[Rfam]
RNA sequence: GCCGCGGGACGACCCGUGGCCGAUACGCAACCGGCAGGACGACCUGC
Numbered sequence: 001g002c003c004g005c006g007g008g009a010c011g012a013c014c015c016g017u018g019g020c021c022g023a024u025a026c027g028c029a030a031c032c033g034g035c036a037g038g039a040c041g042a043c044c045u046g047c
Stems, first nucleotide, its partner, number of pairs: 001020008034047005

Rfam assigns this 47-nucleotide sequence from Cupriavidus pinatubonensis to the family "Guanidine-II riboswitch aptamer (mini-ykkC)". From the family's description: Simpler in structure and has fewer highly conserved nucleotide positions than the ykkC-yxkD leader. Despite this each of its two stem-loop structures directly bind free guanidine. Therefore, mini-ykkC RNA motif represents a distinct class of guanidine-sensing RNAs.